[Rfam]
RNA sequence: AGGCUAGCAUCCUUUAUAUAAGGAGCUGGACUGUUUUGUAAAAUUUAUUUUAAAAUUAAUCAAAACAACGUCUAGUAUCUAAAAAUUUUAAGAACUAGAACGGAGG
Numbered sequence: 001a002g003g004c005u006a007g008c009a010u011c012c013u014u015u016a017u018a019u020a021a022g023g024a025g026c027u028g029g030a031c032u033g034u035u036u037u038g039u040a041a042a043a044u045u046u047a048u049u050u051u052a053a054a055a056u057u058a059a060u061c062a063a064a065a066c067a068a069c070g071u072c073u074a075g076u077a078u079c080u081a082a083a084a085a086u087u088u089u090a091a092g093a094a095c096u097a098g099a100a101c102g103g104a105g106g
Stems, first nucleotide, its partner, number of pairs: 002032002004029005010024005069102003072098005078093003

Shown here is a 106-nucleotide RNA sequence from Anaerosalibacter massiliensis, a member of the family "pan motif". A search with the family's covariance model found it, with a score of 42 bits. Lineage of the source: Bacteria > Bacillota > Tissierellales > Sporanaerobacteraceae > Anaerosalibacter. The family's RNA type in Rfam is cis-regulatory element.